[Rfam]
RNA: Fluoride riboswitch aptamer (crcB RNA motif)
Organism: Photobacterium aphoticum
RNA sequence: GCCCGUGCGGGAGAUGAUGUUCCUCCUUUAACCGCCCGUUUCAUUAGGGAUGAUGACGUCUAACAACAA
Numbered sequence: 001g002c003c004c005g006u007g008c009g010g011g012a013g014a015u016g017a018u019g020u021u022c023c024u025c026c027u028u029u030a031a032c033c034g035c036c037c038g039u040u041u042c043a044u045u046a047g048g049g050a051u052g053a054u055g056a057c058g059u060c061u062a063a064c065a066a067c068a069a
Stems, first nucleotide, its partner, number of pairs: 010026004016060006035049003